[Rfam]
RNA sequence: ACGACCUUACUUGAUUAGGAUCUGUUCUAUAUGAUCGUACCUCUGUAUCCUUGAGUGUUCUAAGAAGAUAUGAAUCAAAGUCUAGUUAAAAAAUCAUGAGUGCACGAUCAUAGUGUGAUUAAUAGUUGGUGAUCUACUGAGCUAGAUCAUCCAGCCGUAGAAGAUCGUUAUCAGUUUAAUAUCUGACAACUGAGAUGGUCGUGCGGUUUCCGACAUACU
Numbered sequence: 001a002c003g004a005c006c007u008u009a010c011u012u013g014a015u016u017a018g019g020a021u022c023u024g025u026u027c028u029a030u031a032u033g034a035u036c037g038u039a040c041c042u043c044u045g046u047a048u049c050c051u052u053g054a055g056u057g058u059u060c061u062a063a064g065a066a067g068a069u070a071u072g073a074a075u076c077a078a079a080g081u082c083u084a085g086u087u088a089a090a091a092a093a094u095c096a097u098g099a100g101u102g103c104a105c106g107a108u109c110a111u112a113g114u115g116u117g118a119u120u121a122a123u124a125g126u127u128g129g130u131g132a133u134c135u136a137c138u139g140a141g142c143u144a145g146a147u148c149a150u151c152c153a154g155c156c157g158u159a160g161a162a163g164a165u166c167g168u169u170a171u172c173a174g175u176u177u178a179a180u181a182u183c184u185g186a187c188a189a190c191u192g193a194g195a196u197g198g199u200c201g202u203g204c205g206g207u208u209u210c211c212g213a214c215a216u217a218c219u
Stems, first nucleotide, its partner, number of pairs: 001038002003035001005033001007031001013027002016024003044070003048066001050064004080218002083215001099207001101205010112169004122158002125155005130149007171193006177185002
RNA: Plant small nucleolar RNA U3
Organism: Macleaya cordata